Shown here is a 131-nucleotide RNA from Hoskinsella hominis, a member of the family "Ribosomal protein L10 leader". A reference for the family is Zengel and Lindahl (1994), "Diverse mechanisms for regulating ribosomal protein synthesis in Escherichia coli", Prog Nucleic Acid Res Mol Biol. Lineage of the source: Bacteria > Erysipelotrichia > Erysipelotrichales > Erysipelotrichaceae > Hoskinsella. The base pairs follow the family's consensus structure, which was predicted with CMfinder.

RNA sequence: AGCUAUGUUAUCAAUAUACCAUAGACAGUAACGGCCGUUAAGGCUUAAUUAUGUUACCGAGGUGUUGAAAGUUUAAGAUACAUUUCUUUCACCCGUACGUCUAUGCAUACGGGUGAUUUUUAUAAAACUCU
Numbered sequence: 001a002g003c004u005a006u007g008u009u010a011u012c013a014a015u016a017u018a019c020c021a022u023a024g025a026c027a028g029u030a031a032c033g034g035c036c037g038u039u040a041a042g043g044c045u046u047a048a049u050u051a052u053g054u055u056a057c058c059g060a061g062g063u064g065u066u067g068a069a070a071g072u073u074u075a076a077g078a079u080a081c082a083u084u085u086c087u088u089u090c091a092c093c094c095g096u097a098c099g100u101c102u103a104u105g106c107a108u109a110c111g112g113g114u115g116a117u118u119u120u121u122a123u124a125a126a127a128c129u130c131u
Stems, first nucleotide, its partner, number of pairs: 028057006034044003089116009